[Rfam]
The record is a 91-nucleotide RNA from Salvator merianae, which matches "Vault RNA" in Rfam.
RNA sequence: GGGCCAGCUUAGCCUAGUGGUUACUUUGUGCAUGAUACACAUUCGAGUAGCUUCUAGCAGUUUGAGACCACAGGUGCUGCCUGGCCUUUAA
Dot-bracket structure: .((((((....((((.((((....((((..................................)))).)))))))).....)))))).....

About the family: This family of RNAs are found as part of the enigmatic vault ribonucleoprotein complex. The organism belongs to Salvator, within Eukaryota. The family's RNA type in Rfam is non-coding RNA gene.